[Rfam]
SAH (S-adenosyl-L-homocysteine) riboswitch aptamer: a 69-nucleotide sequence from Pseudothauera nasutitermitis. For this family Rfam cites "Riboswitches that sense S-adenosylhomocysteine and activate genes involved in coenzyme recycling" (Wang et al., Mol Cell, 2008). Lineage of the source: Bacteria > Pseudomonadota > Rhodocyclales > Zoogloeaceae > Pseudothauera.
RNA sequence: CUUGCCGAGGAGCGCUGCGACCCUGACGACGGGCCAGGCUCGGCAACCGAACAACGGCGCUCGCGAACC
Dot-bracket structure: .(((((((............(((.......)))......))))))).......................
Numbered sequence: 001c002u003u004g005c006c007g008a009g010g011a012g013c014g015c016u017g018c019g020a021c022c023c024u025g026a027c028g029a030c031g032g033g034c035c036a037g038g039c040u041c042g043g044c045a046a047c048c049g050a051a052c053a054a055c056g057g058c059g060c061u062c063g064c065g066a067a068c069c
Stems, first nucleotide, its partner, number of pairs: 002046007021033003